Shown here is a 184-nucleotide RNA from Metabacillus harenarius, a member of the family "Lysine riboswitch aptamer".

RNA sequence: AAUGAAGGUAGAGGCGCGAAAAUCAUUAGUAACCAGUUGGAGGAUAAAUGGUAUCCUAUGAAAAUUGGAGAAAGGGAGAUUCGCCGAAGUGAUAAAAGACCAUUUGCUUUUAUCGCUGGUUUUACAUUUAAGAGGUGUAAAAUUGUCAGGGAUUCGUAUUGAUUCUUGGAGAGCUAUCUCAUUG
Numbered sequence: 001a002a003u004g005a006a007g008g009u010a011g012a013g014g015c016g017c018g019a020a021a022a023u024c025a026u027u028a029g030u031a032a033c034c035a036g037u038u039g040g041a042g043g044a045u046a047a048a049u050g051g052u053a054u055c056c057u058a059u060g061a062a063a064a065u066u067g068g069a070g071a072a073a074g075g076g077a078g079a080u081u082c083g084c085c086g087a088a089g090u091g092a093u094a095a096a097a098g099a100c101c102a103u104u105u106g107c108u109u110u111u112a113u114c115g116c117u118g119g120u121u122u123u124a125c126a127u128u129u130a131a132g133a134g135g136u137g138u139a140a141a142a143u144u145g146u147c148a149g150g151g152a153u154u155c156g157u158a159u160u161g162a163u164u165c166u167u168g169g170a171g172a173g174c175u176a177u178c179u180c181a182u183u184g
Stems, first nucleotide, its partner, number of pairs: 006179006016084005023077002033068006088117011118144011146169007